[Rfam]
RNA sequence: AUGGAGACAUGGCAUAAAGCCCCAGGAGAGAUUGUUGAACUUGACCCUCAACUUGAACUGAUAAUGGCAUCUCAUUUU
Numbered sequence: 001a002u003g004g005a006g007a008c009a010u011g012g013c014a015u016a017a018a019g020c021c022c023c024a025g026g027a028g029a030g031a032u033u034g035u036u037g038a039a040c041u042u043g044a045c046c047c048u049c050a051a052c053u054u055g056a057a058c059u060g061a062u063a064a065u066g067g068c069a070u071c072u073c074a075u076u077u078u
Stems, first nucleotide, its partner, number of pairs: 004073004011021003026068001029065001
RNA: ctgf/hcs24 CAESAR